[Rfam]
Background:
Small nucleolar RNA Z107/R87: a 119-nucleotide RNA from Zizania palustris. A search with the family's covariance model found it, with a score of 118 bits. It is annotated as a C/D-box small nucleolar RNA. Rfam links the family to the GO terms RNA processing and nucleolus.

RNA sequence: UGUGGCAGUGACGACUUGGUAAUAUUCAAGCUCAACAGACCAAAUCACAGGUCUUUCUCGAUGGAUCAGUUCAUCCGAGGUUGAUUUGUAUGCCGAUUAUCCCGCUGAACCGAGCCAUC
Numbered sequence: 001u002g003u004g005g006c007a008g009u010g011a012c013g014a015c016u017u018g019g020u021a022a023u024a025u026u027c028a029a030g031c032u033c034a035a036c037a038g039a040c041c042a043a044a045u046c047a048c049a050g051g052u053c054u055u056u057c058u059c060g061a062u063g064g065a066u067c068a069g070u071u072c073a074u075c076c077g078a079g080g081u082u083g084a085u086u087u088g089u090a091u092g093c094c095g096a097u098u099a100u101c102c103c104g105c106u107g108a109a110c111c112g113a114g115c116c117a118u119c
Base pairs, nucleotide, nucleotide: 002118003117004116005115006114